[Rfam]
RNA sequence: CUCCCUGACAGUGGACAAAGAGAUACCUUGUUGGAGGUCUUAUUCUUAUAUCAUUUGGGGCAAAGAUCAGACGGCAGUCCUUUGUUCAUCCUAGCCUGAUGCCUGACUUGGUGGCCAAAGCUGUUUUAUAUCCAGGAUGCAUAU
Numbered sequence: 001c002u003c004c005c006u007g008a009c010a011g012u013g014g015a016c017a018a019a020g021a022g023a024u025a026c027c028u029u030g031u032u033g034g035a036g037g038u039c040u041u042a043u044u045c046u047u048a049u050a051u052c053a054u055u056u057g058g059g060g061c062a063a064a065g066a067u068c069a070g071a072c073g074g075c076a077g078u079c080c081u082u083u084g085u086u087c088a089u090c091c092u093a094g095c096c097u098g099a100u101g102c103c104u105g106a107c108u109u110g111g112u113g114g115c116c117a118a119a120g121c122u123g124u125u126u127u128a129u130a131u132c133c134a135g136g137a138u139g140c141a142u143a144u
Base pairs, nucleotide, nucleotide: 002062003060004059005058006057007056011054012053013052014051018047019046020045022041023040025038026037027036083139084138085137086136087135098132099131100130104128105127106126109123110122112120